[Rfam]
Rfam assigns this 83-nucleotide RNA from Lactococcus lactis to the family "ctRNA". Its family is annotated with plasmid copy number maintenance and mRNA binding in the Gene Ontology. The base pairs follow the family's consensus structure, which was predicted with ILM. The literature on the family includes a 1998 paper in FEMS Microbiol Lett by Duan et al., "Involvement of antisense RNA in replication control of the lactococcal plasmid pND324". Rolling circle replication plasmids contain a number of mechanisms to maintain a low copy number. One of these methods is to transcribe a small RNA called ctRNA (for counter-transcribed RNA) than is transcribed on the opposite strand to RepB the replication initiation protein. ctRNA binds to the mRNA of repB and causes translational inhibition.
RNA sequence: UGGAAAUACUCCUUUGUGAGUGAUUUUACAUAGGCAUAGAGAAACUGAUUUUGCGGUCGUAUUCUCUAUGCUUUCAUAUACCA
Numbered sequence: 001u002g003g004a005a006a007u008a009c010u011c012c013u014u015u016g017u018g019a020g021u022g023a024u025u026u027u028a029c030a031u032a033g034g035c036a037u038a039g040a041g042a043a044a045c046u047g048a049u050u051u052u053g054c055g056g057u058c059g060u061a062u063u064c065u066c067u068a069u070g071c072u073u074u075c076a077u078a079u080a081c082c083a
Stems, first nucleotide, its partner, number of pairs: 004027003007022005032073012